Shown here is a 124-nucleotide sequence from Trichonephila inaurata, a member of the family "Wolbachia sRNA 46". By type it is a small RNA. The organism belongs to Trichonephila inaurata, within Eukaryota. The literature on the family includes a 2014 paper in Proc Natl Acad Sci U S A by Mayoral et al., "Wolbachia small noncoding RNAs and their role in cross-kingdom communications".

[Rfam]
RNA sequence: UUUACUUUAUGAUGAUGUCAUGAAAGUAGCUGACAUUGGGAUCCAGAAGACUUAAUUUCAACCAAAUAAUAAAGGCUAGAUCCCAGUGUCAGCUACUCGGAUGACAAAAAAAGGAGCACUGGAA
Dot-bracket structure: ..........(....((((((...(((((((((((((((((((.((.............................)).)))))))))))))))))))...))))))............).....